[Rfam]
RNA sequence: AACAAAGUAGCAAUACCCCAUAUCUUGCUAAAACAAGAUAUGGGGUAUUGCUACUUU
Numbered sequence: 001a002a003c004a005a006a007g008u009a010g011c012a013a014u015a016c017c018c019c020a021u022a023u024c025u026u027g028c029u030a031a032a033a034c035a036a037g038a039u040a041u042g043g044g045g046u047a048u049u050g051c052u053a054c055u056u057u
Stems, first nucleotide, its partner, number of pairs: 004057012019042002022039006
A member of the RNA family "Plastid-psbA-4 3UTR RNA" from Ravenala madagascariensis, 57 nucleotides long.
The base pairs follow the family's consensus structure, which was predicted with LocARNA.
Lineage of the source: Eukaryota > Magnoliopsida > Petrosaviidae > Strelitziaceae > Ravenala.
Rfam's curators put it in the seed alignment.
Clan: Plastid-psbA 3UTR RNA clan.